[Rfam]
RNA sequence: GGAAGCGAAAGUGGUCCGGUGACCGCCCCGGUCUUCAAAACCGGUGUUCGGCAGGCUCGUCCUGUCGAGGGUGUGUUCGACUCGCACACGCUUCC
Numbered sequence: 001g002g003a004a005g006c007g008a009a010a011g012u013g014g015u016c017c018g019g020u021g022a023c024c025g026c027c028c029c030g031g032u033c034u035u036c037a038a039a040a041c042c043g044g045u046g047u048u049c050g051g052c053a054g055g056c057u058c059g060u061c062c063u064g065u066c067g068a069g070g071g072u073g074u075g076u077u078c079g080a081c082u083c084g085c086a087c088a089c090g091c092u093u094c095c
Stems, first nucleotide, its partner, number of pairs: 001095007011026006028044005047069007072086004